The record is a 68-nucleotide RNA from Platysternon megacephalum, which matches "MAT2A 3'UTR stem loop F" in Rfam. For this family Rfam cites "New families of human regulatory RNA structures identified by comparative analysis of vertebrate genomes" (Parker et al., Genome Res, 2011). Rfam classes the family as a cis-regulatory element.
RNA sequence: CAUGGGAGAGGCUGAUUUGGCUGGUGUGGUACAGAGAAGCCAGCUUGUUUACAUGCUUUUAUCCCAUG
Numbered sequence: 001c002a003u004g005g006g007a008g009a010g011g012c013u014g015a016u017u018u019g020g021c022u023g024g025u026g027u028g029g030u031a032c033a034g035a036g037a038a039g040c041c042a043g044c045u046u047g048u049u050u051a052c053a054u055g056c057u058u059u060u061a062u063c064c065c066a067u068g
Stems, first nucleotide, its partner, number of pairs: 001068007009058004014049003019045007026032002
Lineage of the source: Eukaryota > Vertebrata > Archelosauria > Testudinoidea > Platysternon.